Notes: A member of the RNA family "U11 spliceosomal RNA" from Helianthus annuus, 129 nucleotides long. Gene Ontology terms of the family: mRNA 5'-splice site recognition, U11 snRNP and pre-mRNA 5'-splice site binding. NCBI's taxonomy places the organism under Eukaryota, Spermatophyta, Magnoliopsida, Pentapetalae, Helianthus. On this family, see Montzka and Steitz, Proc Natl Acad Sci U S A 1988: "Additional low-abundance human small nuclear ribonucleoproteins: U11, U12, etc".
[Rfam]
RNA sequence: UAAAAGGGUCGGUUGGCUAAAUAUGCCACGCUCGCCCAUAGAAAGGUGAGUGCUGUAUGGCUAUCAAGACAUAUGGCUGACAUAAUUUGUGGCAACUUAUAGGGUUGGCUCCUUUGGCCGACCCUCCAU
Numbered sequence: 001u002a003a004a005a006g007g008g009u010c011g012g013u014u015g016g017c018u019a020a021a022u023a024u025g026c027c028a029c030g031c032u033c034g035c036c037c038a039u040a041g042a043a044a045g046g047u048g049a050g051u052g053c054u055g056u057a058u059g060g061c062u063a064u065c066a067a068g069a070c071a072u073a074u075g076g077c078u079g080a081c082a083u084a085a086u087u088u089g090u091g092g093c094a095a096c097u098u099a100u101a102g103g104g105u106u107g108g109c110u111c112c113u114u115u116g117g118c119c120g121a122c123c124c125u126c127c128a129u
Base pairs, nucleotide, nucleotide: 008081009080010079011078012077014028015027016026017025029052030051031050032049033048034047035046036045053076054075055074056073057072058071059070101125102124103123104122105121106120107119108118109117110116